[Rfam]
RNA sequence: ACUGAGCGUUGUGGCGUGCGCUUGUAAUCCAGCUACUUGGAGGUCGGAAGUGCUGGAUUGUUUGAGUUCGAGACCACUGAGGGUCGUCGAUGCUAUGGCGAUCAGGCGUCUACGUUAAGUUCCGCAUCAACAUGGAAUUCCGUACGGAGGUAUGGCGUUCCAGGUUGUCUAAGGAGGGGCGAAUCGGCCCAGGGCGGGAACGCAGCAGGCAAAAGUCCCCGUGUGGAACAGUAAUGGGAUUGCGCCAGUGAAUAGCAGGCGGCCAGCAGCUCGGACAAUACAGCGAGACACGCUUCCUU
Numbered sequence: 001a002c003u004g005a006g007c008g009u010u011g012u013g014g015c016g017u018g019c020g021c022u023u024g025u026a027a028u029c030c031a032g033c034u035a036c037u038u039g040g041a042g043g044u045c046g047g048a049a050g051u052g053c054u055g056g057a058u059u060g061u062u063u064g065a066g067u068u069c070g071a072g073a074c075c076a077c078u079g080a081g082g083g084u085c086g087u088c089g090a091u092g093c094u095a096u097g098g099c100g101a102u103c104a105g106g107c108g109u110c111u112a113c114g115u116u117a118a119g120u121u122c123c124g125c126a127u128c129a130a131c132a133u134g135g136a137a138u139u140c141c142g143u144a145c146g147g148a149g150g151u152a153u154g155g156c157g158u159u160c161c162a163g164g165u166u167g168u169c170u171a172a173g174g175a176g177g178g179g180c181g182a183a184u185c186g187g188c189c190c191a192g193g194g195c196g197g198g199a200a201c202g203c204a205g206c207a208g209g210c211a212a213a214a215g216u217c218c219c220c221g222u223g224u225g226g227a228a229c230a231g232u233a234a235u236g237g238g239a240u241u242g243c244g245c246c247a248g249u250g251a252a253u254a255g256c257a258g259g260c261g262g263c264c265a266g267c268a269g270c271u272c273g274g275a276c277a278a279u280a281c282a283g284c285g286a287g288a289c290a291c292g293c294u295u296c297c298u299u
Stems, first nucleotide, its partner, number of pairs: 001044003004023006028041003046297007058286005066276007077269003082264007092256005103248001105246005110238002113236005119229009128167004133162006140155006168174002176219005187210003194203003
Record summary
The record is a 299-nucleotide RNA from Apostichopus japonicus, which matches "Metazoan signal recognition particle RNA" in Rfam. By type it is a non-coding RNA gene. The base pairs follow the family's consensus structure, which is taken from published work. Lineage of the source: Eukaryota > Deuterostomia > Aspidochirotacea > Stichopodidae > Apostichopus.